[Rfam]
RNA sequence: GGUCACGAGCCCCAGCGCGAAGCCCCGGCUGGCUGGGCAGCAACCCCCACGUUCACGGCGGGGUGCUCCGGGAGAUGACCUGGCCGCCGGCCGCCCCUCGGGGCGAGCAGCCGCGCGGCAAGCGUGAUCG
Numbered sequence: 001g002g003u004c005a006c007g008a009g010c011c012c013c014a015g016c017g018c019g020a021a022g023c024c025c026c027g028g029c030u031g032g033c034u035g036g037g038c039a040g041c042a043a044c045c046c047c048c049a050c051g052u053u054c055a056c057g058g059c060g061g062g063g064u065g066c067u068c069c070g071g072g073a074g075a076u077g078a079c080c081u082g083g084c085c086g087c088c089g090g091c092c093g094c095c096c097c098u099c100g101g102g103g104c105g106a107g108c109a110g111c112c113g114c115g116c117g118g119c120a121a122g123c124g125u126g127a128u129c130g
Base pairs, nucleotide, nucleotide: 001080002079003078004077009038011037012036013035014034015033016032021030022029039067040066041065044063045062046061048058050057083119084118085117086116087115